[Rfam]
A member of the RNA family "Small nucleolar RNA Z107/R87" from Populus deltoides, 98 nucleotides long. It scores 74 bits against the family's covariance model. The literature on the family includes a 2001 paper in J Mol Biol by Barneche et al., "Identification of 66 box C/D snoRNAs in Arabidopsis thaliana: extensive gene duplications generated multiple isoforms predicting new ribosomal RNA 2'-O-methylation sites". Lineage of the source: Eukaryota > Viridiplantae > Streptophyta > rosids > Populus. Its family is annotated with nucleolus and RNA processing in the Gene Ontology. The base pairs follow the family's consensus structure, which was predicted with RNAfold.

RNA sequence: GAUCGCAAUGAUGACAUUUAAAAUUCAAGCUCAACAGACCGGAUUACAAUCUUUCUUCCUGAAAGCAUGUAUGGCGAUAACCGCUGAACUGAGCGAUC
Dot-bracket structure: ((((((......................................................................................))))))
Numbered sequence: 001g002a003u004c005g006c007a008a009u010g011a012u013g014a015c016a017u018u019u020a021a022a023a024u025u026c027a028a029g030c031u032c033a034a035c036a037g038a039c040c041g042g043a044u045u046a047c048a049a050u051c052u053u054u055c056u057u058c059c060u061g062a063a064a065g066c067a068u069g070u071a072u073g074g075c076g077a078u079a080a081c082c083g084c085u086g087a088a089c090u091g092a093g094c095g096a097u098c
Stems, first nucleotide, its partner, number of pairs: 001098006